[Rfam]
RNA sequence: AGAUCGCGUCCAAGGGCAUCCUCCUCCCAGCCUAAGGACGUGUGACACGCAGGGCAUCCUCCUCCCAGCCCUGCCAGUCGAAACGACGCCCGCCAGUACCUCCUCCCACUGGCGGGCGUUCGU
Numbered sequence: 001a002g003a004u005c006g007c008g009u010c011c012a013a014g015g016g017c018a019u020c021c022u023c024c025u026c027c028c029a030g031c032c033u034a035a036g037g038a039c040g041u042g043u044g045a046c047a048c049g050c051a052g053g054g055c056a057u058c059c060u061c062c063u064c065c066c067a068g069c070c071c072u073g074c075c076a077g078u079c080g081a082a083a084c085g086a087c088g089c090c091c092g093c094c095a096g097u098a099c100c101u102c103c104u105c106c107c108a109c110u111g112g113c114g115g116g117c118g119u120u121c122g123u
Stems, first nucleotide, its partner, number of pairs: 007040003011036001014033004045078002049074006087118011
RNA: Alphaproteobacterial ar14